Nucleotides: 178
Stems, first nucleotide, its partner, number of pairs: 006173001008171004017083009033068001034066006087117004092111007118144002122140005146163007
Number, partner (000 for none) and nucleotide at each position: 001000a002000a003000a004000u005000a006173u007000a008171g009170a010169a011168g012000a013000g014000g015000a016000u017083g018082c019081a020080g021079u022078c023077g024076u025075c026000a027000u028000g029000a030000g031000u032000a033068a034066u035065c036064a037063u038062c039061g040000u041000u042000a043000a044000u045000a046000a047000u048000g049000g050000g051000c052000a053000a054000a055000c056000a057000g058000u059000g060000a061039c062038g063037a064036u065035g066034a067000g068033u069000g070000a071000a072000a073000g074000g075025g076024a077023c078022g079021a080020c081019u082018g083017c084000c085000g086000a087117a088116a089115c090114c091000g092111u093110a094109a095108c096107u097106a098105g099000u100000u101000u102000g103000u104000c105098c106097u107096g108095g109094u110093u111092a112000a113000g114090g115089g116088u117087u118144g119143g120000g121000a122140c123139g124138u125137a126136a127000u128000g129000c130000g131000a132000a133000a134000g135000c136126u137125u138124g139123c140122g141000g142000a143119c144118u145000g146163u147162c148161g149160u150159a151158a152157g153000a154000a155000a156000a157152c158151u159150u160149a161148c162147g163146g164000g165000g166000c167000g168011c169010u170009u171008c172000a173006a174000g175000a176000a177000u178000u